[Rfam]
RNA sequence: UGACCCGGUGGUGCGCGCUGCUCUUUAAAGCACUUGGGGAAAUUACCAACCACACCAAACCCGGCCUGACCGUCCGGGAAUUGGGGGACACUCAUUCGGGUGAUGGGGGCAUAAGCGGGUCGGUUUGGUGGGGUACGGUCGCCGCACACCACCACAACCACAGACAAGAGAACGGCCCCCGACAGGACAGCAAUCCUGACGAGGGCCUGACCAAGUAGGAAGAAGAGAGCUUCCCC
Numbered sequence: 001u002g003a004c005c006c007g008g009u010g011g012u013g014c015g016c017g018c019u020g021c022u023c024u025u026u027a028a029a030g031c032a033c034u035u036g037g038g039g040a041a042a043u044u045a046c047c048a049a050c051c052a053c054a055c056c057a058a059a060c061c062c063g064g065c066c067u068g069a070c071c072g073u074c075c076g077g078g079a080a081u082u083g084g085g086g087g088a089c090a091c092u093c094a095u096u097c098g099g100g101u102g103a104u105g106g107g108g109g110c111a112u113a114a115g116c117g118g119g120u121c122g123g124u125u126u127g128g129u130g131g132g133g134u135a136c137g138g139u140c141g142c143c144g145c146a147c148a149c150c151a152c153c154a155c156a157a158c159c160a161c162a163g164a165c166a167a168g169a170g171a172a173c174g175g176c177c178c179c180c181g182a183c184a185g186g187a188c189a190g191c192a193a194u195c196c197u198g199a200c201g202a203g204g205g206c207c208u209g210a211c212c213a214a215g216u217a218g219g220a221a222g223a224a225g226a227g228a229g230c231u232u233c234c235c236c
Base pairs, nucleotide, nucleotide: 009213010212089102090101091100092099093098118143119142120141122139174207175206176205177204178203180201181200184197185196186195187194218234219233220232221231222230
Dot-bracket structure: ........((..............................................................................(((((....)))))...............(((.(................).)))..............................(((((.((..((((......))))..)).)))))....))....(((((.......)))))..

Source information:
Shown here is a 236-nucleotide RNA sequence from Streptomyces tsukubensis, a member of the family "Streptomyces sRNA 4677". Pairs were carried over by alignment from the consensus structure. The family's RNA type in Rfam is small RNA. From the family's description: Located in the intergenic region between anti-sigma factor SCO4677 gene and a putative regulatory protein gene SCO4676. scr4677 expression requires the SCO4677 activity and scr4677 sRNA itself seem to affect the levels of the SCO4676-associated transcripts. Taxonomically the source falls in Streptomyces (Bacteria, Bacillati, Actinomycetota, Streptomycetaceae). The literature on the family includes a 2014 paper in PLoS One by Hindra et al., "Complex intra-operonic dynamics mediated by a small RNA in Streptomyces coelicolor".